[Rfam]
A member of the RNA family "Streptomyces sRNA 4677" from Streptomyces monashensis, 249 nucleotides long. About the family: Located in the intergenic region between anti-sigma factor SCO4677 gene and a putative regulatory protein gene SCO4676. scr4677 expression requires the SCO4677 activity and scr4677 sRNA itself seem to affect the levels of the SCO4676-associated transcripts. The pairing is the family consensus, mapped onto this sequence. By type it is a small RNA. The literature on the family includes a 2014 paper in PLoS One by Hindra et al., "Complex intra-operonic dynamics mediated by a small RNA in Streptomyces coelicolor".

RNA sequence: GGUUCCGGUGACACCAGCGACUGAAAGCCAAGAACGGACGGGGAAAAGGACCCCAACCAAACCCCACCCCCCUCCCGGCCGCGCCGCCGCCCGCUCACUCGGCCGGGUGAAUAUGCCUGCGUCAGCUGGAUUUCACAGCCCCGGACACCCAUACGCUCAGCGCAACACCACCGCAGACAUGCGACGGCCCUCGCCGGGACGGCAAUCCCAGUGCGAGGGCCUGACCACCGAGGAAGAGGCAACUUCCCG
Number, nucleotide and partner (000 for none) at each position: 001g000002g000003u000004u000005c000006c000007g229008g228009u227010g226011a000012c000013a000014c000015c000016a000017g000018c077019g076020a000021c000022u000023g000024a000025a000026a000027g000028c000029c000030a000031a000032g000033a000034a000035c000036g000037g000038a000039c000040g000041g000042g000043g000044a000045a000046a000047a000048g000049g000050a000051c000052c000053c000054c000055a000056a000057c000058c000059a000060a000061a000062c000063c000064c000065c000066a000067c000068c000069c000070c000071c000072c000073u000074c000075c000076c019077g018078g000079c000080c000081g000082c000083g000084c000085c000086g000087c000088c000089g000090c000091c000092c000093g000094c000095u110096c109097a108098c107099u106100c105101g000102g000103c000104c000105g100106g099107g098108u097109g096110a095111a000112u000113a000114u000115g000116c000117c000118u000119g000120c000121g000122u000123c000124a000125g161126c160127u159128g158129g157130a000131u000132u000133u000134c000135a000136c000137a000138g000139c000140c000141c000142c000143g000144g000145a000146c000147a000148c000149c000150c000151a000152u000153a000154c000155g000156c000157u129158c128159a127160g126161c125162g000163c000164a000165a000166c000167a000168c000169c000170a000171c000172c000173g000174c000175a000176g000177a000178c000179a000180u000181g000182c000183g000184a000185c000186g221187g220188c219189c218190c217191u000192c215193g214194c213195c000196g209197g208198g207199a206200c000201g000202g000203c000204a000205a000206u199207c198208c197209c196210a000211g000212u000213g194214c193215g192216a000217g190218g189219g188220c187221c186222u000223g000224a000225c000226c010227a009228c008229c007230g000231a000232g247233g246234a245235a244236g243237a000238g000239g000240c000241a000242a000243c236244u235245u234246c233247c232248c000249g000